[Rfam]
RNA sequence: AGCAGAGUAGAAACCUGUGCGUAAAGUGCCAGCCGGACGGGGAGUUGCCGGGUGGACGAAAAGUUUAACUUGCGGUACAGGCUUCGCAUCCCGCUGCU
Numbered sequence: 001a002g003c004a005g006a007g008u009a010g011a012a013a014c015c016u017g018u019g020c021g022u023a024a025a026g027u028g029c030c031a032g033c034c035g036g037a038c039g040g041g042g043a044g045u046u047g048c049c050g051g052g053u054g055g056a057c058g059a060a061a062a063g064u065u066u067a068a069c070u071u072g073c074g075g076u077a078c079a080g081g082c083u084u085c086g087c088a089u090c091c092c093g094c095u096g097c098u
Stems, first nucleotide, its partner, number of pairs: 001098005010085003014081006020074003026057002029055003033051004040091003044087001061071004
RNA: THF (Tetrahydrofolate) riboswitch aptamer
Organism: Acetanaerobacterium elongatum